This 139-nucleotide sequence from Dasyornis broadbenti belongs to the Rfam family "U8 small nucleolar RNA". It scores 53 bits against the family's covariance model. For this family Rfam cites "The sequence of the 5' end of the U8 small nucleolar RNA is critical for 5.8S and 28S rRNA maturation" (Peculis, Mol Cell Biol, 1997).

RNA sequence: UCGUCAGUGCGGUACAUCCUGACCUGCCCCGCCAUCGCGGGCAGCACGUGAUGAGCGCGGCGUGAUGACGUAGCGGUGAUUACGUCCACGCGGGCGCGCGGGCCACGCAACAAGGCCCGCGCGCGCCUCAGACUCUGAC
Numbered sequence: 001u002c003g004u005c006a007g008u009g010c011g012g013u014a015c016a017u018c019c020u021g022a023c024c025u026g027c028c029c030c031g032c033c034a035u036c037g038c039g040g041g042c043a044g045c046a047c048g049u050g051a052u053g054a055g056c057g058c059g060g061c062g063u064g065a066u067g068a069c070g071u072a073g074c075g076g077u078g079a080u081u082a083c084g085u086c087c088a089c090g091c092g093g094g095c096g097c098g099c100g101g102g103c104c105a106c107g108c109a110a111c112a113a114g115g116c117c118c119g120c121g122c123g124c125g126c127c128u129c130a131g132a133c134u135c136u137g138a139c
Base pairs, nucleotide, nucleotide: 024044025043026042028041029040030039031038032037070089071088073086074084075083077082094124095123096122097121098120099119100118101117102116
Rfam links the family to the GO terms nucleolus and RNA processing. The organism belongs to Dasyornis, within Eukaryota.